RNA sequence: UAACGGUUCUUGGACGAGAUCUCCAGCCGCCCGGCCCAUCCUGACUCACCUUCCCCGGUGUCAGGCGGGGCAAACGGCGCGGAGGGGGAUCUGGUCUCAGAACCAAAGCGGG
Numbered sequence: 001u002a003a004c005g006g007u008u009c010u011u012g013g014a015c016g017a018g019a020u021c022u023c024c025a026g027c028c029g030c031c032c033g034g035c036c037c038a039u040c041c042u043g044a045c046u047c048a049c050c051u052u053c054c055c056c057g058g059u060g061u062c063a064g065g066c067g068g069g070g071c072a073a074a075c076g077g078c079g080c081g082g083a084g085g086g087g088g089a090u091c092u093g094g095u096c097u098c099a100g101a102a103c104c105a106a107a108g109c110g111g112g
Stems, first nucleotide, its partner, number of pairs: 010099001012097004018091002021088004027082004031077003035070003040065006047058001
RNA: mraW RNA
Organism: Renibacterium salmoninarum